A member of the RNA family "rpsL sRNA" from Nothoprocta perdicaria, 85 nucleotides long.
A reference for the family is Meyer et al. (2009), "Identification of candidate structured RNAs in the marine organism 'Candidatus Pelagibacter ubique'", BMC Genomics.
Rfam classes the family as a small RNA.
Pairs were carried over by alignment from the consensus structure, which is taken from published work.
The match comes from Rfam's covariance-model search (39 bits).
RNA sequence: UAGAAUUUACUGGGUAUGGGUGUAGUCAUGUAAUUCUGACUAAAGUUGUAGCAAAUUAUCUUUCAGUCAUUUAACCCAGUCAACA
Numbered sequence: 001u002a003g004a005a006u007u008u009a010c011u012g013g014g015u016a017u018g019g020g021u022g023u024a025g026u027c028a029u030g031u032a033a034u035u036c037u038g039a040c041u042a043a044a045g046u047u048g049u050a051g052c053a054a055a056u057u058a059u060c061u062u063u064c065a066g067u068c069a070u071u072u073a074a075c076c077c078a079g080u081c082a083a084c085a
Base pairs, nucleotide, nucleotide: 009080010079011078012077013076014075017073018072019071020070021069022068023042024041025040026039027038028037045067046066047065048064